A member of the RNA family "Rhizobiales sRNA Atu_C9", 161 nucleotides long. The match comes from Rfam's covariance-model search (58 bits). The family's consensus secondary structure was predicted with WAR. It is annotated as a small RNA.
RNA sequence: UGCUAACGCGAUGGAGGACCACCAUGGGAUUUACGCAAUCGCUCAAUGCCCUUGUGAUCUGUGCAGCGUUCAUAUUUGUGGGUGCAAUGCUUUUCAUUUAGUCAUGAGGGCAUCAACAAGAGCCAAAGUUUAAAGACGGGAGCGUUUCGGCGCUCCCGUUU
Numbered sequence: 001u002g003c004u005a006a007c008g009c010g011a012u013g014g015a016g017g018a019c020c021a022c023c024a025u026g027g028g029a030u031u032u033a034c035g036c037a038a039u040c041g042c043u044c045a046a047u048g049c050c051c052u053u054g055u056g057a058u059c060u061g062u063g064c065a066g067c068g069u070u071c072a073u074a075u076u077u078g079u080g081g082g083u084g085c086a087a088u089g090c091u092u093u094u095c096a097u098u099u100a101g102u103c104a105u106g107a108g109g110g111c112a113u114c115a116a117c118a119a120g121a122g123c124c125a126a127a128g129u130u131u132a133a134a135g136a137c138g139g140g141a142g143c144g145u146u147u148c149g150g151c152g153c154u155c156c157c158g159u160u161u
Stems, first nucleotide, its partner, number of pairs: 016050002019048001026042001028040002134161012